The family of this 60-nucleotide RNA from Tissierella creatinophila is "Fluoride riboswitch aptamer (crcB RNA motif)". NCBI's taxonomy places the organism under Bacteria, Bacillati, Bacillota, Tissierellaceae, Tissierella creatinophila. A search with the family's covariance model found it, with a score of 61 bits. Pairs were carried over by alignment from the consensus structure, which is taken from published work.
RNA sequence: AGAAUAGAUGGUGAUGGAGUUCACCUUUAACCGCAUAAAGCUAAUGACUCCUACAAAAAU
Numbered sequence: 001a002g003a004a005u006a007g008a009u010g011g012u013g014a015u016g017g018a019g020u021u022c023a024c025c026u027u028u029a030a031c032c033g034c035a036u037a038a039a040g041c042u043a044a045u046g047a048c049u050c051c052u053a054c055a056a057a058a059a060u
Stems, first nucleotide, its partner, number of pairs: 010025004016051006033041002
Dot-bracket structure: .........[[[[..((((((]]]].......((.....))....)))))).........